[Rfam]
RNA sequence: UAAAAUAAUUGUUAGGUGAGGCUCCUAUAUGGACACAGGCUGCUGCCGCGAAAGGAUCGAGAGACCCUUAGUUUGGUAAAACAGGAAUAAUCGUUGAAGGUUAUUCAUAACGUAGCUGACAAAUACUUAUUUGUCUACGCCCUAUAGUGCUAAAGCUCAACGAUGACUAUGAAU
Numbered sequence: 001u002a003a004a005a006u007a008a009u010u011g012u013u014a015g016g017u018g019a020g021g022c023u024c025c026u027a028u029a030u031g032g033a034c035a036c037a038g039g040c041u042g043c044u045g046c047c048g049c050g051a052a053a054g055g056a057u058c059g060a061g062a063g064a065c066c067c068u069u070a071g072u073u074u075g076g077u078a079a080a081a082c083a084g085g086a087a088u089a090a091u092c093g094u095u096g097a098a099g100g101u102u103a104u105u106c107a108u109a110a111c112g113u114a115g116c117u118g119a120c121a122a123a124u125a126c127u128u129a130u131u132u133g134u135c136u137a138c139g140c141c142c143u144a145u146a147g148u149g150c151u152a153a154a155g156c157u158c159a160a161c162g163a164u165g166a167c168u169a170u171g172a173a174u
Stems, first nucleotide, its partner, number of pairs: 005170003009166002011161002013098001015157003020151003025147005031141002039116005045077004054066002057064002085106003090101003118135005
M-box riboswitch aptamer (ykoK leader): a 174-nucleotide RNA sequence from Enterococcus saccharolyticus. Rfam's curators write: M-box riboswitch, also know as ykoK leader is described as a metaloregulatory RNA that sense divalent metals and function as a genetic control element of genes related to divalent metal transport in bacteria. A search with the family's covariance model found it, with a score of 126 bits.